[Rfam]
RNA sequence: CCCAGGGCUGACACCCUGGGCUACCAGAUUCCGCUCCGUUGGGGCU
Numbered sequence: 001c002c003c004a005g006g007g008c009u010g011a012c013a014c015c016c017u018g019g020g021c022u023a024c025c026a027g028a029u030u031c032c033g034c035u036c037c038g039u040u041g042g043g044g045c046u
Base pairs, nucleotide, nucleotide: 001020002019003018004017005016006015007014033045034044035043036042037041
Dot-bracket structure: (((((((......)))))))............(((((...))))).